[Rfam]
c-sis internal ribosome entry site (IRES): a 689-nucleotide RNA sequence from Rhinopithecus bieti.
Rfam's curators write: This family represents the c-sis 5'-UTR which contains three modules that can individually mediate internal ribosome entry. However, the full length sequence is required for maximal IRES activity. It is thought that the three IRES elements are somehow responsive to cellular changes and act to regulate the level of translation.
A search with the family's covariance model found it, with a score of 41 bits.
RNA sequence: UGCAAGCUCCCGCAGCCCCCGCCAAGAGGGGACGCCCCAGAGGACCCGCGAGGCGGGCCGGCAAGACCGGACGACGGACGCGCCGCGUUCCACUGUCGGCGGCCCGGGGCCGAAAGCCCGCGAGCGGGCACGCCGCGGCGCGCGGGAGCAAGUCGUGGGCCCCCCGCCGCCCCCGGCCCGCGCCAGGGGGGCGCACACGGCUUCCCGCCCCCCCCACCCCGGGCCCCGGCGGGAGUUGCAACUCUCUCCCUUGCCCCGGUGCGAGCCGCCGUUGGCAAAAGCCAAACUUGGGAAAAAGGUUUUUUUGGGGGGGUACUUGGGCCUUGAGGUGGGCCCGCUCUGCGCUUUCCCGAUUGGGGGGCCUUUCAGGAAAAAUGUGGCAAAGAAAAAGCUAACGGGCGGGGCAGGAAGGAAAAACGCCUAAGGGCGGCGGUGAAGACGGGGAACCCAUUCGACUUGCCGGGUGUUCUUUUUCCUCCCUUGGGUUGGAGUCUCGCCCCUGGGCGGCCCCCACCAAACGGGGGCUAAACGCUCGGCUGUUCCGCGGACGGCAAGCCCCCCCGGCCGUGAUGGGCUGCACCUCGGGGCCCUCGGGAUCCGCCUCCAGGUAAGGCGCCUUCGGGGGACCCCAGGGUCUGGCCCGGCCAUGUUUCCGCUCCCCUUGCCCCCAGCGGACGGAGCCCCGGGGG
Numbered sequence: 001u002g003c004a005a006g007c008u009c010c011c012g013c014a015g016c017c018c019c020c021g022c023c024a025a026g027a028g029g030g031g032a033c034g035c036c037c038c039a040g041a042g043g044a045c046c047c048g049c050g051a052g053g054c055g056g057g058c059c060g061g062c063a064a065g066a067c068c069g070g071a072c073g074a075c076g077g078a079c080g081c082g083c084c085g086c087g088u089u090c091c092a093c094u095g096u097c098g099g100c101g102g103c104c105c106g107g108g109g110c111c112g113a114a115a116g117c118c119c120g121c122g123a124g125c126g127g128g129c130a131c132g133c134c135g136c137g138g139c140g141c142g143c144g145g146g147a148g149c150a151a152g153u154c155g156u157g158g159g160c161c162c163c164c165c166g167c168c169g170c171c172c173c174c175g176g177c178c179c180g181c182g183c184c185a186g187g188g189g190g191g192c193g194c195a196c197a198c199g200g201c202u203u204c205c206c207g208c209c210c211c212c213c214c215c216a217c218c219c220c221g222g223g224c225c226c227c228g229g230c231g232g233g234a235g236u237u238g239c240a241a242c243u244c245u246c247u248c249c250c251u252u253g254c255c256c257c258g259g260u261g262c263g264a265g266c267c268g269c270c271g272u273u274g275g276c277a278a279a280a281g282c283c284a285a286a287c288u289u290g291g292g293a294a295a296a297a298g299g300u301u302u303u304u305u306u307g308g309g310g311g312g313g314u315a316c317u318u319g320g321g322c323c324u325u326g327a328g329g330u331g332g333g334c335c336c337g338c339u340c341u342g343c344g345c346u347u348u349c350c351c352g353a354u355u356g357g358g359g360g361g362c363c364u365u366u367c368a369g370g371a372a373a374a375a376u377g378u379g380g381c382a383a384a385g386a387a388a389a390a391g392c393u394a395a396c397g398g399g400c401g402g403g404g405c406a407g408g409a410a411g412g413a414a415a416a417a418c419g420c421c422u423a424a425g426g427g428c429g430g431c432g433g434u435g436a437a438g439a440c441g442g443g444g445a446a447c448c449c450a451u452u453c454g455a456c457u458u459g460c461c462g463g464g465u466g467u468u469c470u471u472u473u474u475c476c477u478c479c480c481u482u483g484g485g486u487u488g489g490a491g492u493c494u495c496g497c498c499c500c501u502g503g504g505c506g507g508c509c510c511c512c513a514c515c516a517a518a519c520g521g522g523g524g525c526u527a528a529a530c531g532c533u534c535g536g537c538u539g540u541u542c543c544g545c546g547g548a549c550g551g552c553a554a555g556c557c558c559c560c561c562c563g564g565c566c567g568u569g570a571u572g573g574g575c576u577g578c579a580c581c582u583c584g585g586g587g588c589c590c591u592c593g594g595g596a597u598c599c600g601c602c603u604c605c606a607g608g609u610a611a612g613g614c615g616c617c618u619u620c621g622g623g624g625g626a627c628c629c630c631a632g633g634g635u636c637u638g639g640c641c642c643g644g645c646c647a648u649g650u651u652u653c654c655g656c657u658c659c660c661c662u663u664g665c666c667c668c669c670a671g672c673g674g675a676c677g678g679a680g681c682c683c684c685g686g687g688g689g
Base pairs, nucleotide, nucleotide: 002272003271006266007265008264009261026250027245028244029243030242033193034192035191036190037189040184042183047182048181049180050179053177054176056111057110058109059107061105067102068101069100072098073097074096075095076094077093079087080086081085116173120170121169124167125166126165127164128163129157130156131155132154133145134144135143136142196238197237202235203234204233205232206231207230208229209228212223213222285301286300287299288298289297307662308661309660310659311658312657313656315650316649318647319646320645322643328581329580330579331578337575338574341569342568343567344566349564350563357560358559359558360557361556362555380392381391396430399428400427406422407421412418433552434550435549438545440544441543442542443541444540449539450538452536453535454534455533457528458527459525460524461523464519465518467516468490469489470488472485473484474483491505492504493503494502587635588634589633590632593629594628595627597626598625599624606618607617608616609615666688667687668686669685671681672680
Dot-bracket structure: .((..((((................(((((..(((((..(.(....((((..((.((((.(.....(((..((((((.(((...))).....)))))).)))..).).)))....(...((..(((((((((((((.....))))........)))).....))))).))..)..)).))))))....)))))..((....((((((((..((........))....)))))))).))...))))....)..........)..)))....))............(((((.......))))).....(((((((.((.(((.(.....((((.....((..((((....((......((((((.................((.........))...(..((.....((....(.....)..))....)).)..(((..(.(((((....((.((((.(((((..((.((((.(((........)))..)))((((.......))))..........).))...))).))....)))).))))))))...)).)..))))))..)).))))....))..)))).....((((..(((.(((......((((.....)))).....))))))..)))).......).))).)).....)))))))...((((.((.......))...)))).